[Rfam]
RNA: mir-663 microRNA precursor family
Organism: Colobus angolensis
RNA sequence: CCGCUUGCCGUCCCAGGCGGGGGGCCAUGGGACCGCCCUCGUGUCUGUGGUGGUUGCAUCCCGUGGCCGUGUUUUCCUGGUGGCCCGGCU
Numbered sequence: 001c002c003g004c005u006u007g008c009c010g011u012c013c014c015a016g017g018c019g020g021g022g023g024g025c026c027a028u029g030g031g032a033c034c035g036c037c038c039u040c041g042u043g044u045c046u047g048u049g050g051u052g053g054u055u056g057c058a059u060c061c062c063g064u065g066g067c068c069g070u071g072u073u074u075u076c077c078u079g080g081u082g083g084c085c086c087g088g089c090u
Stems, first nucleotide, its partner, number of pairs: 005088003011083002013080005019073002022070001024067009033053005038047001